[Rfam]
RNA: UnaL2 LINE 3' element
RNA sequence: AUUAUUUUCAUUUGUAAGUCACUUUGGAUAAAAGUGUCUGCUAAAUUACUAAAU
Numbered sequence: 001a002u003u004a005u006u007u008u009c010a011u012u013u014g015u016a017a018g019u020c021a022c023u024u025u026g027g028a029u030a031a032a033a034g035u036g037u038c039u040g041c042u043a044a045a046u047u048a049c050u051a052a053a054u
Stems, first nucleotide, its partner, number of pairs: 013043001014041003020036006